Source information: The record is a 123-nucleotide RNA from Rhipicephalus sanguineus, which matches "U5 spliceosomal RNA" in Rfam. Rfam classes the family as a spliceosomal small nuclear RNA.
[Rfam]
RNA sequence: UCGCUCAGGUCUCUCCUCAAAUCCACGUAUUAAUCUUUCGCCUUUUACUAAAGAUUACCGUGGGAAGGGACACUCCAAUGAGCCUAUAGGCCAAUUUUUGGGAGGCCUUACCCGUUUGGGUGA
Numbered sequence: 001u002c003g004c005u006c007a008g009g010u011c012u013c014u015c016c017u018c019a020a021a022u023c024c025a026c027g028u029a030u031u032a033a034u035c036u037u038u039c040g041c042c043u044u045u046u047a048c049u050a051a052a053g054a055u056u057a058c059c060g061u062g063g064g065a066a067g068g069g070a071c072a073c074u075c076c077a078a079u080g081a082g083c084c085u086a087u088a089g090g091c092c093a094a095u096u097u098u099u100g101g102g103a104g105g106c107c108u109u110a111c112c113c114g115u116u117u118g119g120g121u122g123a
Stems, first nucleotide, its partner, number of pairs: 003083004009071006016064004031057008108123006

The match comes from Rfam's covariance-model search (79 bits).